This 34-nucleotide RNA sequence belongs to the Rfam family "L31-Coriobacteria ribosomal protein leader".
RNA sequence: CCGCUGGUCGGAAACCAGCGGCUAACCCAAGGAA
Numbered sequence: 001c002c003g004c005u006g007g008u009c010g011g012a013a014a015c016c017a018g019c020g021g022c023u024a025a026c027c028c029a030a031g032g033a034a
Stems, first nucleotide, its partner, number of pairs: 001021008
Dot-bracket structure: ((((((((.....)))))))).............

Description:
The base pairs follow the family's consensus structure, which is taken from published work. Rfam 15.1 lists 105 matches to the family in 84 species.